A member of the RNA family "S-element" from Falsochrobactrum ovis, 68 nucleotides long. On this family, see Venkova-Canova et al., Mol Microbiol 2004: "Two discrete elements are required for the replication of a repABC plasmid: an antisense RNA and a stem-loop structure". Rfam describes the family as follows. This family represents a group of S-elements from p42d and related plasmids. The S-element has multiple functions and is believed to act as a negative regulator of repC transcription, be required for efficient replication and act as a translational enhancer of repC. The organism belongs to Falsochrobactrum, within Bacteria. It is annotated as a cis-regulatory element. Its family is annotated with translation regulator activity and mRNA transcription in the Gene Ontology.
[Rfam]
RNA sequence: UGUCAAGUCCUUUGGCGUCAUUUUGGCGGGUGGAUUUCUUUUGCCUCAUGAAAGGGUGAGAGGAAAUG
Numbered sequence: 001u002g003u004c005a006a007g008u009c010c011u012u013u014g015g016c017g018u019c020a021u022u023u024u025g026g027c028g029g030g031u032g033g034a035u036u037u038c039u040u041u042u043g044c045c046u047c048a049u050g051a052a053a054g055g056g057u058g059a060g061a062g063g064a065a066a067u068g
Stems, first nucleotide, its partner, number of pairs: 009063005016058004021054004025049001028046001030044005